About this RNA: The record is a 100-nucleotide sequence from Methylobacterium sp. Leaf93, which matches "Glycine riboswitch aptamer" in Rfam. The source organism's lineage runs through Bacteria, Pseudomonadati, Pseudomonadota, Methylobacteriaceae and Methylobacterium.
[Rfam]
RNA sequence: AAUGACGCAGCGGGAGAGCCCAGGCCGGUACGAACCGGUCAUGGCGCCGACGGAGCAACCACCCCCGGAAACUCUCAGGCACAAUCACCGCUUCGUUUUG
Dot-bracket structure: .....((.(((((......(((...................))).(((((..(((...((......))...))))).))).......))))).)).....
For this family Rfam cites "A glycine-dependent riboswitch that uses cooperative binding to control gene expression" (Mandal et al., Science, 2004). About the family: This family represents the bacterial glycine riboswitch.